[Rfam]
RNA sequence: CGUCCCAAAAUUCCGAUCCGGCUUCCACAUCGAGCCUCAGCUAGAUCCAUAACUUGCUGGCAAGAUGUUGGCAGUCGCAUUGGAUAAAGGAGAC
Number, nucleotide and partner (000 for none) at each position: 001c000002g000003u000004c000005c000006c000007a000008a000009a000010a000011u000012u000013c000014c082015g081016a080017u079018c000019c077020g076021g075022c074023u073024u000025c071026c070027a068028c067029a066030u065031c064032g000033a000034g061035c060036c059037u000038c000039a058040g057041c056042u000043a000044g000045a000046u000047c000048c000049a000050u000051a000052a000053c000054u000055u000056g041057c040058u039059g036060g035061c034062a000063a000064g031065a030066u029067g028068u027069u000070g026071g025072c000073a023074g022075u021076c020077g019078c000079a017080u016081u015082g014083g000084a000085u000086a000087a000088a000089g000090g000091a000092g000093a000094c000